RNA: Group II catalytic intron D1-D4-3
RNA sequence: GUUGCCGUGAGGCUGGGUCUGAAGGAAGGUGUAAGCAAACCUCUGCCCCAACGCACAGAAACCAUUUCAGGCCGAGCAUGGGGGAUAAGGCCGCUAGACAGGUUGAAGUCCAAUAACUGCACGGAACCCAGCUAGGUAAAGAUGGUGGGGACAUGGAGGGAAAGAACGUGUG
Numbered sequence: 001g002u003u004g005c006c007g008u009g010a011g012g013c014u015g016g017g018u019c020u021g022a023a024g025g026a027a028g029g030u031g032u033a034a035g036c037a038a039a040c041c042u043c044u045g046c047c048c049c050a051a052c053g054c055a056c057a058g059a060a061a062c063c064a065u066u067u068c069a070g071g072c073c074g075a076g077c078a079u080g081g082g083g084g085a086u087a088a089g090g091c092c093g094c095u096a097g098a099c100a101g102g103u104u105g106a107a108g109u110c111c112a113a114u115a116a117c118u119g120c121a122c123g124g125a126a127c128c129c130a131g132c133u134a135g136g137u138a139a140a141g142a143u144g145g146u147g148g149g150g151a152c153a154u155g156g157a158g159g160g161a162a163a164g165a166a167c168g169u170g171u172g
Stems, first nucleotide, its partner, number of pairs: 002015001004013003029171004036164001040159006046150005062145005071137003075133003079130004083111004089104004